[Rfam]
RNA sequence: AAGCCGUGCCUUUCAGGCAUCCUCUCCUAAAAACUUUUCGGCCGGGCUCUGCCCGGCCUUUUUUUUGGACCGC
Numbered sequence: 001a002a003g004c005c006g007u008g009c010c011u012u013u014c015a016g017g018c019a020u021c022c023u024c025u026c027c028u029a030a031a032a033a034c035u036u037u038u039c040g041g042c043c044g045g046g047c048u049c050u051g052c053c054c055g056g057c058c059u060u061u062u063u064u065u066u067g068g069a070c071c072g073c
Stems, first nucleotide, its partner, number of pairs: 008018004040058008
RNA: Makes More Granules Regulator RNA (mmgR)
Organism: Sphingomonas sp. BK345